[Rfam]
RNA sequence: AGUCGGAACUCAAUCGACGCGAGUAUUAGAAAUGAUAUGAGCGGCGUUCGAUACUGCAAUAGUUACAUGGGCGGGUUAUGCCCCAUGAGCCGAGUGCAGAGCCGCCGCCGCGUCCUUGAGUUUAUCAUUGA
Numbered sequence: 001a002g003u004c005g006g007a008a009c010u011c012a013a014u015c016g017a018c019g020c021g022a023g024u025a026u027u028a029g030a031a032a033u034g035a036u037a038u039g040a041g042c043g044g045c046g047u048u049c050g051a052u053a054c055u056g057c058a059a060u061a062g063u064u065a066c067a068u069g070g071g072c073g074g075g076u077u078a079u080g081c082c083c084c085a086u087g088a089g090c091c092g093a094g095u096g097c098a099g100a101g102c103c104g105c106c107g108c109c110g111c112g113u114c115c116u117u118g119a120g121u122u123u124a125u126c127a128u129u130g131a
Stems, first nucleotide, its partner, number of pairs: 009120005016114006023038006041108006054099005062090003066087006
This 131-nucleotide RNA belongs to the Rfam family "RAGATH-4 RNA". The family's RNA type in Rfam is small RNA. For this family Rfam cites "New classes of self-cleaving ribozymes revealed by comparative genomics analysis" (Weinberg et al., Nat Chem Biol, 2015). The sequence is in the family's curated seed alignment.